Shown here is an 85-nucleotide RNA sequence from Aromatoleum aromaticum, a member of the family "c-di-GMP-I-GGC riboswitch aptamer".
[Rfam]
RNA sequence: UCUGAAAAAGGCAAACCCGUCGAAAGGCGGGGACGCAAAAUCACCGGUCUACAGGGGUCGCCCCAUGACAGCGGGAUUGCCAGGC
Numbered sequence: 001u002c003u004g005a006a007a008a009a010g011g012c013a014a015a016c017c018c019g020u021c022g023a024a025a026g027g028c029g030g031g032g033a034c035g036c037a038a039a040a041u042c043a044c045c046g047g048u049c050u051a052c053a054g055g056g057g058u059c060g061c062c063c064c065a066u067g068a069c070a071g072c073g074g075g076a077u078u079g080c081c082a083g084g085c
Base pairs, nucleotide, nucleotide: 003082004081011036012035016031017030018029019028020027021026034071039078040077041076042075044074045073046072047069048068049067

The source organism's lineage runs through Bacteria, Pseudomonadati, Pseudomonadota, Betaproteobacteria and Aromatoleum aromaticum. Rfam links the family to the GO term cyclic-di-GMP binding.